RNA sequence: GUUGACCUUACAGCAAUUCUUCUAAGAAACCCCCCGUCAACUG
Numbered sequence: 001g002u003u004g005a006c007c008u009u010a011c012a013g014c015a016a017u018u019c020u021u022c023u024a025a026g027a028a029a030c031c032c033c034c035c036g037u038c039a040a041c042u043g
Stems, first nucleotide, its partner, number of pairs: 001041006
RNA: Class I RNA from Dictyostelium